[Rfam]
RNA sequence: AUCCGGCUCCGGGCCCCUCUGGCGAGCGCGCCGACCGCCUCGCGAUGUCGGCGUCUCUGU
Dot-bracket structure: .....((.((((.........(((((((.......)).)))))....)))).))......
Rfam assigns this 60-nucleotide RNA sequence from Pseudoroseicyclus aestuarii to the family "terC RNA". The match comes from Rfam's covariance-model search (51 bits). It is annotated as a cis-regulatory element. The family's consensus secondary structure is taken from published work. NCBI's taxonomy places the organism under Bacteria, Pseudomonadati, Pseudomonadota, Paracoccaceae, Pseudoroseicyclus.